[Rfam]
RNA sequence: CAUGUCAGCGCGAGAUGCUGACGUGGAAAGAAAUCGUGCUCUCAAGGAUGCGAUUUCCUUCGACGUCAGCAUUUCGCGCUGACGUGG
Numbered sequence: 001c002a003u004g005u006c007a008g009c010g011c012g013a014g015a016u017g018c019u020g021a022c023g024u025g026g027a028a029a030g031a032a033a034u035c036g037u038g039c040u041c042u043c044a045a046g047g048a049u050g051c052g053a054u055u056u057c058c059u060u061c062g063a064c065g066u067c068a069g070c071a072u073u074u075c076g077c078g079c080u081g082a083c084g085u086g087g
Stems, first nucleotide, its partner, number of pairs: 001086021023064002026061003030057009040047002
MIR7486 microRNA precursor family: an 87-nucleotide sequence from Gossypium mustelinum. The family has 9 seed sequences and 10,132 matches in Rfam 15.1. Pairs were carried over by alignment from the consensus structure, which was predicted with RNAalifold.